[Rfam]
The record is a 46-nucleotide RNA sequence from Flavobacterium sp. BFFFF2, which matches "CRISPR RNA direct repeat element" in Rfam. Lineage of the source: Bacteria > Pseudomonadati > Bacteroidota > Flavobacteriales > Flavobacterium. Its family is annotated with defense response in the Gene Ontology.
RNA sequence: GUUGGGAAUCAUGAGUAAAAAUACAAUUUUGAAAGCAAUUCACAAC
Number, nucleotide and partner (000 for none) at each position: 001g000002u000003u044004g043005g000006g041007a040008a039009u038010c000011a000012u000013g000014a000015g000016u031017a030018a029019a028020a027021a000022u000023a000024c000025a000026a000027u020028u019029u018030u017031g016032a000033a000034a000035g000036c000037a000038a009039u008040u007041c006042a000043c004044a003045a000046c000
Overview:
Pairs were carried over by alignment from the consensus structure, which was predicted with WAR.